[Rfam]
RNA sequence: AGCCACUGAUGAAACUGAUUCUGCCAAAUGAGUCCCUGUGAUAUUACCCUUUCCGUUCCUUUCUUUCUGAGGUU
Numbered sequence: 001a002g003c004c005a006c007u008g009a010u011g012a013a014a015c016u017g018a019u020u021c022u023g024c025c026a027a028a029u030g031a032g033u034c035c036c037u038g039u040g041a042u043a044u045u046a047c048c049c050u051u052u053c054c055g056u057u058c059c060u061u062u063c064u065u066u067c068u069g070a071g072g073u074u
Stems, first nucleotide, its partner, number of pairs: 001074004
RNA: Small nucleolar RNA SNORD47
Organism: Regulus satrapa